[Rfam]
RNA sequence: UUGACAUGCAAAUGAUAAUUGUUAUUAUUCAAACCACUGGCUGCGAGGCCAGUCGAUAAACUGAGCGGCCACCGCAGUCGGACGAUCAGAUUAUCUCCUCAUCAGGCUAAUCACGGUUUCGACCCGGCACAUCGCCGGGUCUUUUUUUG
Numbered sequence: 001u002u003g004a005c006a007u008g009c010a011a012a013u014g015a016u017a018a019u020u021g022u023u024a025u026u027a028u029u030c031a032a033a034c035c036a037c038u039g040g041c042u043g044c045g046a047g048g049c050c051a052g053u054c055g056a057u058a059a060a061c062u063g064a065g066c067g068g069c070c071a072c073c074g075c076a077g078u079c080g081g082a083c084g085a086u087c088a089g090a091u092u093a094u095c096u097c098c099u100c101a102u103c104a105g106g107c108u109a110a111u112c113a114c115g116g117u118u119u120c121g122a123c124c125c126g127g128c129a130c131a132u133c134g135c136c137g138g139g140u141c142u143u144u145u146u147u148u149g
Stems, first nucleotide, its partner, number of pairs: 034055001036053007061089004066084002069080001097106003121141008